[Rfam]
RNA: MIR7502 microRNA precursor family
RNA sequence: UGUUAAAAGUUUUAUCCAUUUCUACUUUUAAAAGCUAAUAUGAGUAGCAAAACAAUCAAAUAGUGGCACAUGGCAUAUGCUGACAUGGAGGGACCAAUUUUUAUCUGUAGAUGGAUGAAACUUUUAACA
Number, nucleotide and partner (000 for none) at each position: 001u000002g128003u127004u126005a125006a124007a123008a122009g121010u120011u119012u118013u117014a116015u115016c114017c000018a112019u000020u000021u111022c110023u109024a108025c107026u000027u000028u000029u103030a102031a101032a100033a099034g000035c000036u000037a000038a000039u000040a000041u000042g000043a000044g000045u000046a000047g000048c000049a000050a000051a000052a000053c000054a000055a000056u000057c000058a000059a000060a000061u000062a000063g000064u000065g000066g000067c000068a000069c000070a000071u000072g000073g000074c000075a000076u000077a000078u000079g000080c000081u000082g000083a000084c000085a000086u000087g000088g000089a000090g000091g000092g000093a000094c000095c000096a000097a000098u000099u033100u032101u031102u030103a029104u000105c000106u000107g025108u024109a023110g022111a021112u018113g000114g016115a015116u014117g013118a012119a011120a010121c009122u008123u007124u006125u005126a004127a003128c002129a000